[Rfam]
Nucleotides: 337
Stems, first nucleotide, its partner, number of pairs: 018151008026093006033086004037080004042074002044071001045069002048066003052063002055060001101143005107132003111128003163237003169233005183222004189218006195211002242330003245326005258315005266308002291301004
Number, partner (000 for none) and nucleotide at each position: 001000c002000c003000u004000u005000u006000u007000c008000u009000c010000a011000a012000a013000a014000c015000a016000g017000c018151a019150g020149a021148u022147c023146u024145g025144u026093g027092u028091c029090u030089g031088g032000c033086a034085g035084u036083c037080c038079u039078g040077u041000c042074c043073a044071g045069u046068g047000c048066u049065c050064u051000u052063u053062u054000c055060c056000u057000u058000c059000a060055g061000a062053a063052a064050a065049g066048a067000a068046u069045g070000c071044u072000g073043u074042g075000u076000a077040a078039c079038g080037g081000u082000u083036g084035a085034u086033u087000a088031c089030c090029a091028g092027g093026c094000a095000g096000u097000u098000c099000g100000a101143c102142g103141a104140c105139a106000a107132u108131g109130g110000a111128g112127c113126c114000a115000u116000c117000a118000u119000a120000a121000c122000a123000a124000a125000a126113g127112g128111u129000g130109u131108c132107a133000a134000u135000u136000u137000c138000c139105u140104g141103u142102c143101g144025a145024c146023g147022g148021a149020u150019c151018u152000g153000a154000g155000a156000u157000u158000g159000a160000u161000g162000a163237g164236c165235a166000g167000c168000u169233u170232u171231c172230g173229g174000c175000c176000c177000u178000c179000u180000c181000c182000u183222g184221a185220u186219c187000u188000u189218g190217a191216g192215c193214u194213u195211c196210c197000u198000u199000u200000g201000c202000c203000u204000a205000g206000c207000a208000u209000u210196g211195g212000u213194g214193a215192g216191c217190u218189c219186g220185g221184u222183u223000g224000g225000g226000a227000a228000a229173c230172c231171g232170g233169a234000u235165u236164g237163c238000u239000g240000a241000c242330g243329g244328c245326g246325u247324c248323a249322u250000a251000u252000u253000c254000c255000c256000a257000c258315u259314c260313c261312c262311u263000u264000u265000a266308c267307c268000g269000a270000u271000u272000u273000u274000u275000u276000u277000u278000u279000u280000a281000u282000a283000a284000a285000a286000a287000a288000u289000u290000u291301g292300g293299c294298c295000g296000u297000u298294g299293g300292c301291u302000u303000a304000u305000g306000a307267g308266g309000a310000u311262g312261g313260g314259g315258a316000a317000a318000a319000a320000c321000c322249a323248u324247g325246a326245c327000a328244g329243c330242c331000a332000a333000c334000a335000u336000a337000c
Rfam assigns this 337-nucleotide RNA from Talaromyces rugulosus to the family "A. fumigatus sRNA Afu_309". It is annotated as a small RNA. On this family, see Jochl et al., Nucleic Acids Res 2008: "Small ncRNA transcriptome analysis from Aspergillus fumigatus suggests a novel mechanism for regulation of protein synthesis".